RNA sequence: CAGUACCACCCUCUACUCGGAUCGUCCGGCACGUUCCUGCCGGUGAAGGGAUGUUUUC
Numbered sequence: 001c002a003g004u005a006c007c008a009c010c011c012u013c014u015a016c017u018c019g020g021a022u023c024g025u026c027c028g029g030c031a032c033g034u035u036c037c038u039g040c041c042g043g044u045g046a047a048g049g050g051a052u053g054u055u056u057u058c
Stems, first nucleotide, its partner, number of pairs: 009050004014045002026043006

msiK RNA: a 58-nucleotide sequence from Nocardia macrotermitis. A search with the family's covariance model found it, with a score of 50 bits. NCBI's taxonomy places the organism under Bacteria, Bacillati, Mycobacteriales, Nocardiaceae, Nocardia. Pairs were carried over by alignment from the consensus structure, which is taken from published work.